[Rfam]
RNA sequence: AGGGCGAAUGCCUGCAGAACUACAUCGAUUGUUAACCGCCAGGUCGCGGGUUCGAAUCCCGCCGCUGCAGCCACUUAUGAUGCAGCGUAGCUCAGAGGUAGAGCAGGAAACGUUUUGCAACAAACUUGUCGCCUUAGC
Numbered sequence: 001a002g003g004g005c006g007a008a009u010g011c012c013u014g015c016a017g018a019a020c021u022a023c024a025u026c027g028a029u030u031g032u033u034a035a036c037c038g039c040c041a042g043g044u045c046g047c048g049g050g051u052u053c054g055a056a057u058c059c060c061g062c063c064g065c066u067g068c069a070g071c072c073a074c075u076u077a078u079g080a081u082g083c084a085g086c087g088u089a090g091c092u093c094a095g096a097g098g099u100a101g102a103g104c105a106g107g108a109a110a111c112g113u114u115u116u117g118c119a120a121c122a123a124a125c126u127u128g129u130c131g132c133c134u135u136a137g138c
Base pairs, nucleotide, nucleotide: 002134003133004132005131006130007129013119014118015117016116017115018114019113039107040106046062047061048060049059050058053098063087064086065085066084067083068082090104091103092102093101
The record is a 138-nucleotide sequence from Cohaesibacter gelatinilyticus, which matches "Y RNA-like" in Rfam.
The match comes from Rfam's covariance-model search (70 bits).
On this family, see Chen et al., Cell 2013: "An RNA degradation machine sculpted by Ro autoantigen and noncoding RNA".
About the family: In Deinococcus radiodurans Rsr is tethered via Y RNA to the exoribonuclease PNPase and channels single-stranded RNA into the PNPase cavity. Rsr and Y RNA enhance degradation of structured RNAs by PNPase. This role could be conserved, as Rsr and ncRNAs called YrlA and YrlB (Y RNA like) also associate with PNPase in an evolutionary distant bacterium Salmonella Typhimurium.
Pairs were carried over by alignment from the consensus structure, which is taken from published work.